[Rfam]
RNA sequence: AAGGUCCAAUAGGAAUUGAACCUACGAAUUCGCCAAUUAUGAGUUGAACGCUUUAACCAUUUAGCCAUGGAUGC
Numbered sequence: 001a002a003g004g005u006c007c008a009a010u011a012g013g014a015a016u017u018g019a020a021c022c023u024a025c026g027a028a029u030u031c032g033c034c035a036a037u038u039a040u041g042a043g044u045u046g047a048a049c050g051c052u053u054u055a056a057c058c059a060u061u062u063a064g065c066c067a068u069g070g071a072u073g074c
Base pairs, nucleotide, nucleotide: 004072005071006070007069010024011023012022013021039068040067041066043065044064045063046062047061048060050058
Dot-bracket structure: ...((((..((((.......))))..............(((.((((((.(.......).)))))))))))))..

Shown here is a 74-nucleotide RNA sequence from Gossypium mustelinum, a member of the family "Plastid-ycf2 5UTR RNA". The family's consensus secondary structure was predicted with LocARNA. By type it is a cis-regulatory element. The organism belongs to Gossypium, within Eukaryota. Rfam describes the family as follows. Plastid ycf2 is a non-coding RNA (ncRNA) recognised in plastids.